[Rfam]
RNA sequence: CACCUGGACACGGGGUGCGUCGCUUCUCAUGACGCUGAGAUCAAACCCGUGGAACCUGAUCUAGCUCGUACUAGCGAAGGGAUGUCCCAGUGGCUUCGC
Numbered sequence: 001c002a003c004c005u006g007g008a009c010a011c012g013g014g015g016u017g018c019g020u021c022g023c024u025u026c027u028c029a030u031g032a033c034g035c036u037g038a039g040a041u042c043a044a045a046c047c048c049g050u051g052g053a054a055c056c057u058g059a060u061c062u063a064g065c066u067c068g069u070a071c072u073a074g075c076g077a078a079g080g081g082a083u084g085u086c087c088c089a090g091u092g093g094c095u096u097c098g099c
Stems, first nucleotide, its partner, number of pairs: 006087005011049004016043001017035005055080003061074004
TPP riboswitch aptamer (THI element): a 99-nucleotide RNA from Tessaracoccus rhinocerotis. A search with the family's covariance model found it, with a score of 72 bits. Taxonomically the source falls in Tessaracoccus (Bacteria, Actinomycetota, Propionibacteriales, Propionibacteriaceae). The base pairs follow the family's consensus structure, which is taken from published work.